[Rfam]
RNA sequence: AGGCGGCGAAGACAAAAAUGCAUUCCUGAGGAUAGUUAUAUAUAUCUAAAAAUUUUAUUGUUUUGAUGACAUUUGUGCGUGUCAUUUGAGCCUC
Numbered sequence: 001a002g003g004c005g006g007c008g009a010a011g012a013c014a015a016a017a018a019u020g021c022a023u024u025c026c027u028g029a030g031g032a033u034a035g036u037u038a039u040a041u042a043u044a045u046c047u048a049a050a051a052a053u054u055u056u057a058u059u060g061u062u063u064u065g066a067u068g069a070c071a072u073u074u075g076u077g078c079g080u081g082u083c084a085u086u087u088g089a090g091c092c093u094c
Stems, first nucleotide, its partner, number of pairs: 001093004
The record is a 94-nucleotide RNA from Capsicum annuum, which matches "small nucleolar RNA snoR126" in Rfam.
Lineage of the source: Eukaryota > Mesangiospermae > lamiids > Capsiceae > Capsicum.
Rfam classes the family as a C/D-box small nucleolar RNA.
The base pairs follow the family's consensus structure, which was predicted with RNAalifold.
The match comes from Rfam's covariance-model search (41 bits).